[Rfam]
RNA sequence: AACCACACUAUCAAUGAAUGGAUUCACCUGUGAGAUGACGUGGUUGUUCCAUCUAUGAUGAGGACGUGGUAUCCUAUUAAUUUCGUGUGAUGGCUGGUAAUAUGAUGCCACAUCCUCGUCCCAGAUGAAACAACCACGUCAUCUCGUGGGUGAAUCUAUUCAUUGAUAGUGUGGUU
Number, nucleotide and partner (000 for none) at each position: 001a176002a175003c174004c173005a172006c171007a170008c000009u168010a167011u166012c165013a164014a163015u162016g000017a160018a159019u158020g000021g156022a155023u154024u153025c152026a151027c150028c149029u000030g147031u146032g145033a144034g000035a142036u141037g140038a139039c138040g000041u136042g135043g134044u133045u132046g131047u130048u129049c000050c000051a126052u125053c000054u123055a000056u000057g120058a119059u000060g000061a000062g000063g114064a113065c000066g000067u000068g000069g108070u107071a106072u105073c104074c000075u102076a101077u100078u099079a098080a000081u000082u000083u000084c000085g000086u000087g000088u000089g000090a000091u000092g000093g000094c000095u000096g000097g000098u079099a078100a077101u076102a075103u000104g073105a072106u071107g070108c069109c000110a000111c000112a000113u064114c063115c000116u000117c000118g000119u058120c057121c000122c000123a054124g000125a052126u051127g000128a000129a048130a047131c046132a045133a044134c043135c042136a041137c000138g039139u038140c037141a036142u035143c000144u033145c032146g031147u030148g000149g028150g027151u026152g025153a024154a023155u022156c021157u000158a019159u018160u017161c000162a015163u014164u013165g012166a011167u010168a009169g000170u007171g006172u005173g004174g003175u002176u001